[Rfam]
RNA sequence: CAUGCGGGCCGGGCCCCUCUGGCGAUUGCGGAUGCAAUCGUGAUGUCGGACCGCAUCG
Numbered sequence: 001c002a003u004g005c006g007g008g009c010c011g012g013g014c015c016c017c018u019c020u021g022g023c024g025a026u027u028g029c030g031g032a033u034g035c036a037a038u039c040g041u042g043a044u045g046u047c048g049g050a051c052c053g054c055a056u057c058g
Stems, first nucleotide, its partner, number of pairs: 006052002009049004022041008
Shown here is a 58-nucleotide RNA from Sphingomonas cavernae, a member of the family "terC RNA".
A search with the family's covariance model found it, with a score of 67 bits.
The family has 129 seed sequences and 1,112 matches in Rfam 15.1.
Rfam classes the family as a cis-regulatory element.
Pairs were carried over by alignment from the consensus structure, which is taken from published work.